[Rfam]
RNA: tRNA
Nucleotides: 073
Base pairs, nucleotide, nucleotide: 001072002071003070004069005068006067007066010025011024012023013022027043028042029041030040031039049065050064051063052062053061
Number, partner (000 for none) and nucleotide at each position: 001072g002071c003070u004069g005068g006067c007066a008000u009000a010025g011024c012023u013022c014000a015000g016000a017000u018000g019000g020000u021000a022013g023012a024011g025010c026000a027043g028042c029041c030040g031039c032000c033000u034000u035000g036000u037000a038000a039031g040030c041029g042028g043027c044000a045000g046000g047000u048000c049065g050064c051063g052062g053061g054000u055000u056000c057000g058000a059000u060000g061053c062052c063051u064050g065049c066007u067006g068005c069004c070003a071002g072001c073000a